[Rfam]
RNA sequence: AAAGAGGAUAGAGGCGCGGUACGCAUGCGUACCCCGGGACAAGGCCAGGCAGCCGUCCCGUGGGGAGAGGGCGCACCGCCGAAGGUUGCUUCGCCUGCCUGGGCACGGCUUCCUGGGCCGUACGGAAACACCGUGCGGACUGUCACAGCAUGUGGAGCGCUAUCCUGAGG
Numbered sequence: 001a002a003a004g005a006g007g008a009u010a011g012a013g014g015c016g017c018g019g020u021a022c023g024c025a026u027g028c029g030u031a032c033c034c035c036g037g038g039a040c041a042a043g044g045c046c047a048g049g050c051a052g053c054c055g056u057c058c059c060g061u062g063g064g065g066a067g068a069g070g071g072c073g074c075a076c077c078g079c080c081g082a083a084g085g086u087u088g089c090u091u092c093g094c095c096u097g098c099c100u101g102g103g104c105a106c107g108g109c110u111u112c113c114u115g116g117g118c119c120g121u122a123c124g125g126a127a128a129c130a131c132c133g134u135g136c137g138g139a140c141u142g143u144c145a146c147a148g149c150a151u152g153u154g155g156a157g158c159g160c161u162a163u164c165c166u167g168a169g170g
Stems, first nucleotide, its partner, number of pairs: 006165006016079005022073003032064003035060005083114003088109003093104002115141002118138008143155005
Dot-bracket structure: .....((((((....(((((.(((.......((((((((................))))).)))......))).)))))...(((..(((..((........))..)))..)))((.((((((((.....)))))))).)).(((((...)))))....)))))).....
About this RNA: This 170-nucleotide sequence from Pseudoflavonifractor capillosus belongs to the Rfam family "Lysine riboswitch aptamer". A search with the family's covariance model found it, with a score of 83 bits. Gene Ontology term of the family: lysine biosynthetic process. Riboswitches are metabolite binding domains within certain messenger RNAs that serve as precision sensors for their corresponding targets.